Record summary
The family of this 127-nucleotide RNA sequence from Nyssa sinensis is "MIR403 microRNA precursor family". Its family is annotated with miRNA-mediated post-transcriptional gene silencing and RISC complex in the Gene Ontology. It scores 87 bits against the family's covariance model.

[Rfam]
RNA sequence: ACGUAUCUCCAGUUUGUGCGUGAAUCUAACCUUAUCAUCACAGCCGUCCACUCUUCUUUUACCACGAAUCUCGAGACAGACAGGCCAUUGAUGGAGUUAGAUUCACGCACAAACUCGUGAUCUGUCU
Numbered sequence: 001a002c003g004u005a006u007c008u009c010c011a012g013u014u015u016g017u018g019c020g021u022g023a024a025u026c027u028a029a030c031c032u033u034a035u036c037a038u039c040a041c042a043g044c045c046g047u048c049c050a051c052u053c054u055u056c057u058u059u060u061a062c063c064a065c066g067a068a069u070c071u072c073g074a075g076a077c078a079g080a081c082a083g084g085c086c087a088u089u090g091a092u093g094g095a096g097u098u099a100g101a102u103u104c105a106c107g108c109a110c111a112a113a114c115u116c117g118u119g120a121u122c123u124g125u126c127u
Base pairs, nucleotide, nucleotide: 001125002124003123005121006120007119011115012114013113014112015111016110017109018108019107020106021105022104023103024102025101026100028098029097030096035094036093046085048083